Actino-pnp RNA: a 73-nucleotide RNA sequence from Antrihabitans stalactiti. Lineage of the source: Bacteria > Bacillati > Actinomycetota > Actinomycetes > Antrihabitans.
RNA sequence: GUCGGUCUUCGGUAGUGGCUUUUCGGAAGCGCAAAACGAGCGCUCGCCCGGAGAGCUUCGAUCGAUGACCGCC
Numbered sequence: 001g002u003c004g005g006u007c008u009u010c011g012g013u014a015g016u017g018g019c020u021u022u023u024c025g026g027a028a029g030c031g032c033a034a035a036a037c038g039a040g041c042g043c044u045c046g047c048c049c050g051g052a053g054a055g056c057u058u059c060g061a062u063c064g065a066u067g068a069c070c071g072c073c
Stems, first nucleotide, its partner, number of pairs: 001073001003071005009065005017057010029047003
The match comes from Rfam's covariance-model search (56 bits).